[Rfam]
RNA: RNase MRP
RNA sequence: UCCUCGCUCAAAGAAUCGCAUUCAAAGCUCACGCACAGAGUUUUCCUUUCAGGAAACUCAUACCAUCUCAAGCUUUGGGAGAAAGUCCCCGGACAUCCUGCCCGGUUUCUCUUUCGAGGAACUGGCUCUGUCAGGCAAUGCGGAAACGCGCCGCCAUAGAAGCAAUUCGAUAGCGGCUUACGCCCUGUUUCCUUCCCCUGCUUUCGAUCGUGCCCGACGCCUUCGGUGGAAACAAUUGUGGUACGGCGUGAGCGGGGAGAAGGGUUUCAAUUGGGUUGCUUUUCGUCGAGGUUGUAUAGUCAUGCGAUUGCUCGCGCGGAUCCUUCGCGGUCUGCGUGGGUAACUCAAUGGGGCUCAUUCUUGAGGCGAGG
Numbered sequence: 001u002c003c004u005c006g007c008u009c010a011a012a013g014a015a016u017c018g019c020a021u022u023c024a025a026a027g028c029u030c031a032c033g034c035a036c037a038g039a040g041u042u043u044u045c046c047u048u049u050c051a052g053g054a055a056a057c058u059c060a061u062a063c064c065a066u067c068u069c070a071a072g073c074u075u076u077g078g079g080a081g082a083a084a085g086u087c088c089c090c091g092g093a094c095a096u097c098c099u100g101c102c103c104g105g106u107u108u109c110u111c112u113u114u115c116g117a118g119g120a121a122c123u124g125g126c127u128c129u130g131u132c133a134g135g136c137a138a139u140g141c142g143g144a145a146a147c148g149c150g151c152c153g154c155c156a157u158a159g160a161a162g163c164a165a166u167u168c169g170a171u172a173g174c175g176g177c178u179u180a181c182g183c184c185c186u187g188u189u190u191c192c193u194u195c196c197c198c199u200g201c202u203u204u205c206g207a208u209c210g211u212g213c214c215c216g217a218c219g220c221c222u223u224c225g226g227u228g229g230a231a232a233c234a235a236u237u238g239u240g241g242u243a244c245g246g247c248g249u250g251a252g253c254g255g256g257g258a259g260a261a262g263g264g265u266u267u268c269a270a271u272u273g274g275g276u277u278g279c280u281u282u283u284c285g286u287c288g289a290g291g292u293u294g295u296a297u298a299g300u301c302a303u304g305c306g307a308u309u310g311c312u313c314g315c316g317c318g319g320a321u322c323c324u325u326c327g328c329g330g331u332c333u334g335c336g337u338g339g340g341u342a343a344c345u346c347a348a349u350g351g352g353g354c355u356c357a358u359u360c361u362u363g364a365g366g367c368g369a370g371g
Base pairs, nucleotide, nucleotide: 002371003370004369005368006367007366008364009363010362011361014309015308016307017306018305019304022079023077024076025075026074027073028072038059039058040057041056042055043054044053084355085354087353088352089351090350106121107120108119109118110117111116189261190260191259196257197256198255199254200253201252202251203250205248214246215245216244232239233238311340312339313338314337315336316335317334318333319332320331321330322329